[Rfam]
RNA sequence: AAACUAAUUAAAGCGCUGGCGCUUGCCAUUGGCAAGCAGACGAGGAAGAGGUUUAUCGAGUAGUCGGCGGGUACCUCUCGGAACUGCGCAACCGUUAGCAACCGACAAAACCGGCAAGUGAUUGCCGGGACAAAACGCGUUGCAGCGCAAAAA
Numbered sequence: 001a002a003a004c005u006a007a008u009u010a011a012a013g014c015g016c017u018g019g020c021g022c023u024u025g026c027c028a029u030u031g032g033c034a035a036g037c038a039g040a041c042g043a044g045g046a047a048g049a050g051g052u053u054u055a056u057c058g059a060g061u062a063g064u065c066g067g068c069g070g071g072u073a074c075c076u077c078u079c080g081g082a083a084c085u086g087c088g089c090a091a092c093c094g095u096u097a098g099c100a101a102c103c104g105a106c107a108a109a110a111c112c113g114g115c116a117a118g119u120g121a122u123u124g125c126c127g128g129g130a131c132a133a134a135a136c137g138c139g140u141u142g143c144a145g146c147g148c149a150a151a152a153a
Base pairs, nucleotide, nucleotide: 021037022036023035024034025033026032027031047078048077049076050075051074056067057066058065059064079094080093081092098143099142100141101140102139103137111128112127113126114125115124116123117122

Rfam assigns this 153-nucleotide sequence from Anaerosporomusa subterranea to the family "glmS glucosamine-6-phosphate activated ribozyme aptamer". It is annotated as a riboswitch. A search with the family's covariance model found it, with a score of 97 bits. The base pairs follow the family's consensus structure, which is taken from published work.